[Rfam]
RNA sequence: AUCGAGGCUAGAGUCACGCUUGGGUAUCAGCUGUUGCCUCAGUGUGCUAGAGUCCUCGAAGAGUAACUGCUGACCUUAUUCACUGGCUAUGCCCUUAUGGCACAGUCAGUCACCAGGUUAGUGACACGC
Dot-bracket structure: .((((((((..((.((((((..((((........))))..))))))))..))).)))))..........(((((((.....(((((.(.((((.....)))).).)))))....)))))))........
Numbered sequence: 001a002u003c004g005a006g007g008c009u010a011g012a013g014u015c016a017c018g019c020u021u022g023g024g025u026a027u028c029a030g031c032u033g034u035u036g037c038c039u040c041a042g043u044g045u046g047c048u049a050g051a052g053u054c055c056u057c058g059a060a061g062a063g064u065a066a067c068u069g070c071u072g073a074c075c076u077u078a079u080u081c082a083c084u085g086g087c088u089a090u091g092c093c094c095u096u097a098u099g100g101c102a103c104a105g106u107c108a109g110u111c112a113c114c115a116g117g118u119u120a121g122u123g124a125c126a127c128g129c
Stems, first nucleotide, its partner, number of pairs: 002059005007053003012048002015046006023038004070121007082110005088104001090102004
The record is a 129-nucleotide RNA from Catagonus wagneri, which matches "Small nucleolar RNA SNORA3/SNORA45 family" in Rfam. NCBI's taxonomy places the organism under Eukaryota, Deuterostomia, Chordata, Laurasiatheria, Catagonus. The family's consensus secondary structure was predicted with RNAalifold. By type it is an H/ACA-box small nucleolar RNA. From the family's description: The members of this family belong to the H/ACA class of snoRNAs which are thought to guide the sites of modification of uridines to pseudouridines. Gene Ontology terms of the family: nucleolus and RNA processing.